RNA sequence: UUGCUGGUAACGGCAGGGUCUGAAGGAAGCAAUAUGAAGUGAGCGGUACAUAGCACAAGCGAACCUGAUUCGGCAUCAUAAGGGGGUAAGCGUGCAAAAUAGCGCAAAGCCCUAUACCUGGUCAGCCUUAUGGUGUGAUUGAGGAUGGCAUUGCUCACAGGGUUCUCGC
Number, nucleotide and partner (000 for none) at each position: 001u016002u015003g014004c013005u012006g011007g000008u000009a000010a000011c006012g005013g004014c003015a002016g001017g000018g000019u000020c000021u000022g000023a000024a000025g000026g000027a000028a000029g169030c168031a000032a166033u000034a000035u000036g000037a000038a000039g000040u157041g156042a155043g154044c153045g000046g151047u000048a000049c147050a146051u145052a000053g000054c000055a000056c000057a000058a000059g000060c000061g000062a000063a000064c144065c143066u142067g000068a140069u000070u000071c000072g000073g136074c135075a134076u000077c132078a131079u130080a129081a128082g127083g126084g112085g111086g110087u109088a000089a000090g105091c104092g103093u102094g000095c000096a000097a000098a000099a000100u000101a000102g093103c092104g091105c090106a000107a000108a000109g087110c086111c085112c084113u000114a000115u000116a000117c000118c000119u000120g000121g000122u000123c000124a000125g000126c083127c082128u081129u080130a079131u078132g077133g000134u075135g074136u073137g000138a000139u000140u068141g000142a066143g065144g064145a051146u050147g049148g000149c000150a000151u046152u000153g044154c043155u042156c041157a040158c000159a000160g000161g000162g000163u000164u000165c000166u032167c000168g030169c029
Shown here is a 169-nucleotide RNA, a member of the family "Group II catalytic intron D1-D4-3". About the family: Group II introns are found in rRNA, tRNA and mRNA of organelles in fungi, plants and protists, and also in mRNA in bacteria. The base pairs follow the family's consensus structure.